[Rfam]
RNA sequence: GAACCCGUGAUGGGAAAGCGCUUCUUCUUUCCCAUCGCGGAGAGAACUUGGGAGGGGAAAUGAAUUCGAAAGUGGCCGAGAAAUCGUUUCAUCCGCCAUUAGUUAAUCUUCGGUUGGCGGUAUGAUUGUUGCUCGUCUACAC
Numbered sequence: 001g002a003a004c005c006c007g008u009g010a011u012g013g014g015a016a017a018g019c020g021c022u023u024c025u026u027c028u029u030u031c032c033c034a035u036c037g038c039g040g041a042g043a044g045a046a047c048u049u050g051g052g053a054g055g056g057g058a059a060a061u062g063a064a065u066u067c068g069a070a071a072g073u074g075g076c077c078g079a080g081a082a083a084u085c086g087u088u089u090c091a092u093c094c095g096c097c098a099u100u101a102g103u104u105a106a107u108c109u110u111c112g113g114u115u116g117g118c119g120g121u122a123u124g125a126u127u128g129u130u131g132c133u134c135g136u137c138u139a140c141a142c
Stems, first nucleotide, its partner, number of pairs: 006039012074138002077135004083126004093120006100113001
This 142-nucleotide RNA sequence from Eucalyptus grandis belongs to the Rfam family "Small nucleolar RNA snoR111". Rfam links the family to the GO terms RNA processing and nucleolus. For this family Rfam cites "Experimental RNomics: identification of 140 candidates for small non-messenger RNAs in the plant Arabidopsis thaliana" (Marker et al., Curr Biol, 2002). The match comes from Rfam's covariance-model search (60 bits). The organism belongs to Eucalyptus, within Eukaryota. The family's consensus secondary structure was predicted with WAR.